[Rfam]
RNA sequence: GAAGGAAGGCCCUUCGGAGUCGGCUUGCAGGAGCAGGCUUCAAACCGCCACAAGCUGCGUGGGUAAAGAGCCCUCGUGGUGAGCGUUGUUGGAAAAGGCAGGGAUCUACUCUGUCAGGU
Numbered sequence: 001g002a003a004g005g006a007a008g009g010c011c012c013u014u015c016g017g018a019g020u021c022g023g024c025u026u027g028c029a030g031g032a033g034c035a036g037g038c039u040u041c042a043a044a045c046c047g048c049c050a051c052a053a054g055c056u057g058c059g060u061g062g063g064u065a066a067a068g069a070g071c072c073c074u075c076g077u078g079g080u081g082a083g084c085g086u087u088g089u090u091g092g093a094a095a096a097g098g099c100a101g102g103g104a105u106c107u108a109c110u111c112u113g114u115c116a117g118g119u
Stems, first nucleotide, its partner, number of pairs: 001015005016041006023034004046118001048092002050089004054080002057077003061073004097115006